[Rfam]
RNA sequence: CUGGCGAACGGAGAUGGCAUUCCUCCAUAACCGCCUUAACCGGCUGAUGAUGUCUACGUAACC
Numbered sequence: 001c002u003g004g005c006g007a008a009c010g011g012a013g014a015u016g017g018c019a020u021u022c023c024u025c026c027a028u029a030a031c032c033g034c035c036u037u038a039a040c041c042g043g044c045u046g047a048u049g050a051u052g053u054c055u056a057c058g059u060a061a062c063c
Stems, first nucleotide, its partner, number of pairs: 010026004016054006033044003